About this RNA
This 90-nucleotide RNA from Paenibacillus albilobatus belongs to the Rfam family "c-di-GMP-I riboswitch aptamer".
[Rfam]
RNA sequence: AUUGAAAAAAGGCAAACCCAUUGAAAAAUGGGGGCGCAAAGCUUUAGGAGCUAACGCGAUUUACCGUCGCCAUGCUAGCCAGCUACCAAU
Numbered sequence: 001a002u003u004g005a006a007a008a009a010a011g012g013c014a015a016a017c018c019c020a021u022u023g024a025a026a027a028a029u030g031g032g033g034g035c036g037c038a039a040a041g042c043u044u045u046a047g048g049a050g051c052u053a054a055c056g057c058g059a060u061u062u063a064c065c066g067u068c069g070c071c072a073u074g075c076u077a078g079c080c081a082g083c084u085a086c087c088a089a090u
Stems, first nucleotide, its partner, number of pairs: 012037002017032006040084004047080002049076003056070004
Lineage of the source: Bacteria > Bacillota > Caryophanales > Paenibacillaceae > Paenibacillus.
A search with the family's covariance model found it, with a score of 78 bits.
Its family is annotated with cyclic-di-GMP binding in the Gene Ontology.